[Rfam]
RNA sequence: ACAGUAAUGCCAAAGUGCUUACAGUGCAGGUAGUAAUAUUUACCUACUGCAGUGAAGGCACUUAUAGCAUUACAUU
Numbered sequence: 001a002c003a004g005u006a007a008u009g010c011c012a013a014a015g016u017g018c019u020u021a022c023a024g025u026g027c028a029g030g031u032a033g034u035a036a037u038a039u040u041u042a043c044c045u046a047c048u049g050c051a052g053u054g055a056a057g058g059c060a061c062u063u064a065u066a067g068c069a070u071u072a073c074a075u076u
Stems, first nucleotide, its partner, number of pairs: 004073004009068002013063008022054002025051003029048005
RNA: mir-17 microRNA precursor family
Organism: Acipenser ruthenus